Background: A member of the RNA family "ASpks TB sRNA" from Streptomyces sp. 846.5, 75 nucleotides long. The organism belongs to Streptomyces, within Bacteria.

Nucleotides: 075
Base pairs, nucleotide, nucleotide: 015025016024017023031071032070038065039064043060044059045058047056049054
Number, partner (000 for none) and nucleotide at each position: 001000c002000u003000u004000c005000a006000g007000c008000g009000a010000g011000c012000c013000c014000a015025g016024c017023c018000a019000c020000a021000a022000c023017g024016g025015c026000c027000g028000c029000c030000c031071c032070g033000g034000c035000u036000c037000c038065c039064g040000c041000c042000c043060c044059u045058g046000a047056c048000c049054g050000u051000a052000c053000g054049u055000c056047g057000c058045c059044a060043g061000c062000a063000g064039c065038g066000c067000c068000u069000g070032c071031g072000c073000c074000u075000c